[Rfam]
radC RNA: a 163-nucleotide RNA from Burkholderia pseudomallei. The base pairs follow the family's consensus structure, which is taken from published work. Taxonomically the source falls in Burkholderia pseudomallei (Bacteria, Pseudomonadati, Betaproteobacteria, Burkholderiales).
RNA sequence: ACCCUCGCCCGAUGUUCGCUGAUUCGUCAGCCGCAUGCCCAGGUGGCCGCGAUCUUCAAGGCUACGGCGCGGAUAGGUCCGCGCUGAUCGUUUUCCUCCAACGACGCUAUGGCGUCUUUCCUUCACCCGCAGGGGCGUUCAGUCCCUCGGGGCUGCGCUCCUG
Numbered sequence: 001a002c003c004c005u006c007g008c009c010c011g012a013u014g015u016u017c018g019c020u021g022a023u024u025c026g027u028c029a030g031c032c033g034c035a036u037g038c039c040c041a042g043g044u045g046g047c048c049g050c051g052a053u054c055u056u057c058a059a060g061g062c063u064a065c066g067g068c069g070c071g072g073a074u075a076g077g078u079c080c081g082c083g084c085u086g087a088u089c090g091u092u093u094u095c096c097u098c099c100a101a102c103g104a105c106g107c108u109a110u111g112g113c114g115u116c117u118u119u120c121c122u123u124c125a126c127c128c129g130c131a132g133g134g135g136c137g138u139u140c141a142g143u144c145c146c147u148c149g150g151g152g153c154u155g156c157g158c159u160c161c162u163g
Stems, first nucleotide, its partner, number of pairs: 012036003018031005043065006051089004066085007124163002132156001134153001136151001138149001